[Rfam]
RNA: Nuclear RNase P
Organism: Nothobranchius furzeri
RNA sequence: GUGGGAGGAAGCUCACUGUAGAGGUCACGAUCUGAGUGCUCGUCACUCGUCCAAUCACCUCGGGGAAGGUCUGAGACAAGAGCCAAUAGCUGCCCUUGCAGGGCAUCACCUGAUUCAGGCGAGUGAGUGAACAGAAAUCAUGGCCACCGCGUGCAGGCUCACGCAGGAGAAGCCUGGGACACGCCGCUCCCGGCACCCCAGGUGGAUGCGCUGCACGCCGGCUUGGAAUCGCUCACGGCUGGCGGAAUGAGUGCGAUGUGUGAGGUGGGGCACUGCUCCAGAACCCAAUUCAGACUACUCUCCUCCCAC
Number, nucleotide and partner (000 for none) at each position: 001g309002u308003g307004g306005g000006a000007g303008g302009a301010a000011g000012c264013u263014c262015a261016c260017u000018g000019u000020a000021g061022a060023g059024g058025u000026c000027a000028c000029g000030a000031u000032c000033u000034g048035a047036g046037u045038g044039c000040u000041c000042g000043u000044c038045a037046c036047u035048c034049g000050u000051c000052c000053a000054a000055u000056c000057a000058c024059c023060u022061c021062g000063g000064g000065g000066a000067a000068g000069g000070u000071c293072u292073g291074a290075g289076a000077c000078a000079a000080g000081a240082g239083c238084c237085a000086a000087u000088a000089g000090c000091u105092g104093c103094c102095c101096u000097u000098g000099c000100a000101g095102g094103g093104c092105a091106u122107c121108a000109c119110c118111u117112g000113a000114u000115u000116c000117a111118g110119g109120c000121g107122a106123g236124u235125g234126a233127g232128u231129g230130a000131a000132c000133a000134g000135a000136a000137a000138u000139c000140a000141u000142g000143g222144c221145c220146a000147c000148c000149g000150c000151g000152u000153g000154c000155a000156g000157g000158c000159u000160c000161a000162c000163g000164c000165a000166g000167g000168a000169g000170a000171a000172g000173c000174c000175u000176g000177g000178g000179a000180c000181a000182c000183g000184c000185c000186g000187c000188u000189c000190c000191c000192g000193g000194c000195a000196c000197c000198c000199c000200a000201g000202g000203u000204g000205g000206a000207u000208g000209c000210g000211c000212u000213g000214c000215a000216c000217g000218c000219c000220g145221g144222c143223u000224u000225g000226g000227a000228a000229u000230c129231g128232c127233u126234c125235a124236c123237g084238g083239c082240u081241g000242g000243c000244g000245g000246a000247a000248u000249g000250a000251g000252u000253g000254c000255g000256a000257u000258g000259u000260g016261u015262g014263a013264g012265g000266u280267g279268g278269g277270g276271c275272a000273c000274u000275g271276c270277u269278c268279c267280a266281g000282a000283a000284c000285c000286c000287a000288a000289u075290u074291c073292a072293g071294a000295c000296u000297a000298c000299u000300c000301u009302c008303c007304u000305c000306c004307c003308a002309c001